[Rfam]
RNA sequence: GAGAGAGUUAGUAGGAAAGCACUUGGGGUCGAAACACGGCAAGACUCCCAGGUGCUUUUCUCA
Number, nucleotide and partner (000 for none) at each position: 001g000002a000003g000004a000005g000006a000007g000008u000009u000010a000011g000012u000013a000014g000015g059016a058017a057018a056019g055020c054021a000022c000023u051024u050025g049026g048027g047028g045029u044030c043031g000032a000033a000034a000035c000036a000037c000038g000039g000040c000041a000042a000043g030044a029045c028046u000047c027048c026049c025050a024051g023052g000053u000054g020055c019056u018057u017058u016059u015060c000061u000062c000063a000
Overview
The record is a 63-nucleotide RNA sequence from Crocosphaera subtropica, which matches "Cyano-1 RNA" in Rfam. The base pairs follow the family's consensus structure, which is taken from published work. Rfam's curators put it in the seed alignment.